[Rfam]
RNA sequence: CCAGAGGCUGGCGCCCCUGGCUAGGUGCUUUCGCCCCUCCGGGGCU
Numbered sequence: 001c002c003a004g005a006g007g008c009u010g011g012c013g014c015c016c017c018u019g020g021c022u023a024g025g026u027g028c029u030u031u032c033g034c035c036c037c038u039c040c041g042g043g044g045c046u
Stems, first nucleotide, its partner, number of pairs: 001020004006015003033045005
A member of the RNA family "Acido-Lenti-1 RNA" from Pseudobythopirellula maris, 46 nucleotides long. A search with the family's covariance model found it, with a score of 38 bits.